This 86-nucleotide RNA sequence from Ailuropoda melanoleuca belongs to the Rfam family "Small nucleolar RNA SNORD35". The family's RNA type in Rfam is C/D-box small nucleolar RNA. A search with the family's covariance model found it, with a score of 70 bits. About the family: U35 is a C/D box snoRNA located in intron 6 of ribosomal protein L13A and intron 3 of ribosomal protein S11 in humans and at homologous positions in mouse and chicken ribosomal protein genes. Clan: SNORD35 clan.
RNA sequence: GGCAGAUAAUGUCUUUUCACGAUGGUCUUCAGAUGCCCGCCACGGGCACUGCUGAGAAACCCACUUGGCACACCUGAUGUCAGCAG
Dot-bracket structure: ((((.........................................................................)))).....